RNA sequence: GCCGAGCCUGGUAGCGAUGGCUUGUUACCCAAGCGGGGGCUCUAAGGUGGUGGGAUGAAUGUACGGGCCAAGUGGGUGAGGUGUUGACGUGUAAAUCUCGAUUUGUCCGUUCCAAGUCGGGCAGCUGAACCAUGCAGUCCGAGCAUAGGCUCGGGUCGCGUUGGAUCCUAAAGCGGAGGGCACAGCGUCAGGCUGCUUCACAGAGCAGCGAAUACCUCCCGCUCUCGACGGUGGAAGGAUAACAAGUUGGCUACUACUGAUCAAACCAUCACCUUUUUUAUAGUAAAAAAAUAAUAAAUUUUUA
Numbered sequence: 001g002c003c004g005a006g007c008c009u010g011g012u013a014g015c016g017a018u019g020g021c022u023u024g025u026u027a028c029c030c031a032a033g034c035g036g037g038g039g040c041u042c043u044a045a046g047g048u049g050g051u052g053g054g055a056u057g058a059a060u061g062u063a064c065g066g067g068c069c070a071a072g073u074g075g076g077u078g079a080g081g082u083g084u085u086g087a088c089g090u091g092u093a094a095a096u097c098u099c100g101a102u103u104u105g106u107c108c109g110u111u112c113c114a115a116g117u118c119g120g121g122c123a124g125c126u127g128a129a130c131c132a133u134g135c136a137g138u139c140c141g142a143g144c145a146u147a148g149g150c151u152c153g154g155g156u157c158g159c160g161u162u163g164g165a166u167c168c169u170a171a172a173g174c175g176g177a178g179g180g181c182a183c184a185g186c187g188u189c190a191g192g193c194u195g196c197u198u199c200a201c202a203g204a205g206c207a208g209c210g211a212a213u214a215c216c217u218c219c220c221g222c223u224c225u226c227g228a229c230g231g232u233g234g235a236a237g238g239a240u241a242a243c244a245a246g247u248u249g250g251c252u253a254c255u256a257c258u259g260a261u262c263a264a265a266c267c268a269u270c271a272c273c274u275u276u277u278u279u280a281u282a283g284u285a286a287a288a289a290a291a292u293a294a295u296a297a298a299u300u301u302u303u304a
Stems, first nucleotide, its partner, number of pairs: 001040003004023005028037003048304003052300002056296002059292002062285003066281001070278003074274005081262001084259001086257001089255001091254003098250009107238002110236005116229006123223003127167002130164003133160003137156008168173001175219005186210003193203003
Overview
Rfam assigns this 304-nucleotide RNA from Musa balbisiana to the family "Plant signal recognition particle RNA". The base pairs follow the family's consensus structure, which is taken from published work. Clan: SRP clan. Rfam links the family to the GO terms signal recognition particle, endoplasmic reticulum targeting and SRP-dependent cotranslational protein targeting to membrane, signal sequence recognition. The match comes from Rfam's covariance-model search (152 bits).